[Rfam]
RNA: Rhodo-rpoB RNA
Organism: Yoonia litorea
RNA sequence: AUGUCGGGAGGAGGCCGGUGGGACGGCCGCCACGAAUUGACAUCAAGCCCCCGGUCAAAUGGGUGAUGCAGCGCGACCCCGGCGGUGCAUGG
Number, nucleotide and partner (000 for none) at each position: 001a043002u042003g041004u040005c039006g000007g000008g000009a000010g031011g030012a000013g028014g027015c026016c025017g024018g000019u000020g000021g000022g000023a000024c017025g016026g015027c014028c013029g000030c011031c010032a000033c000034g000035a000036a000037u000038u000039g005040a004041c003042a002043u001044c000045a000046a000047g000048c000049c000050c000051c000052c000053g000054g000055u000056c000057a000058a000059a000060u000061g000062g000063g000064u092065g000066a090067u089068g088069c087070a086071g000072c084073g083074c000075g000076a000077c000078c000079c000080c000081g000082g000083c073084g072085g000086u070087g069088c068089a067090u066091g000092g064